Shown here is a 71-nucleotide RNA sequence from Shigella flexneri, a member of the family "Nucleoid-associated noncoding RNA 4 (CssrE)". The source organism's lineage runs through Bacteria, Pseudomonadati, Enterobacterales, Shigella flexneri and Shigella flexneri 2a. The family's consensus secondary structure is taken from published work. In E. coli small RNA transcribed from repeated extragenic palindromic element (REP325) called nucleoid-associated ncRNA 4 (nRNA4) collaborates HU protein in condensing the DNA. The secondary structure but not the sequence of the RNA is important in nucleoid condensation. Also identified in Shigella as CssrE. It scores 75 bits against the family's covariance model. Gene Ontology terms of the family: bacterial nucleoid DNA packaging, bacterial nucleoid and protein binding. For this family Rfam cites "A New Noncoding RNA Arranges Bacterial Chromosome Organization" (Qian et al., MBio, 2015).
[Rfam]
RNA sequence: GGACGGAUAAGGCGUUUAUGCCGCAUCCGGCAACAGAUGCCUGAUGCGACGCUACCGCGUCUUAUCAGGCC
Numbered sequence: 001g002g003a004c005g006g007a008u009a010a011g012g013c014g015u016u017u018a019u020g021c022c023g024c025a026u027c028c029g030g031c032a033a034c035a036g037a038u039g040c041c042u043g044a045u046g047c048g049a050c051g052c053u054a055c056c057g058c059g060u061c062u063u064a065u066c067a068g069g070c071c
Stems, first nucleotide, its partner, number of pairs: 002031001004029005011022004039070008048061005